[Rfam]
RNA sequence: CUACAGGGAUGAUUUCAAGAAUUGAGCUCUCUCUUACUGAUGGAUUAGUGGAGAAAGUAAAAUUUCUGAGUAGC
Numbered sequence: 001c002u003a004c005a006g007g008g009a010u011g012a013u014u015u016c017a018a019g020a021a022u023u024g025a026g027c028u029c030u031c032u033c034u035u036a037c038u039g040a041u042g043g044a045u046u047a048g049u050g051g052a053g054a055a056a057g058u059a060a061a062a063u064u065u066c067u068g069a070g071u072a073g074c
Stems, first nucleotide, its partner, number of pairs: 001073004

The record is a 74-nucleotide sequence from Sus scrofa, which matches "Small nucleolar RNA SNORD26" in Rfam. The base pairs follow the family's consensus structure, which was predicted with PFOLD. Its Rfam clan is "SNORD26 clan". Taxonomically the source falls in Sus (Eukaryota, Opisthokonta, Eumetazoa, Craniata). Rfam links the family to the GO terms RNA processing and nucleolus. By type it is a C/D-box small nucleolar RNA.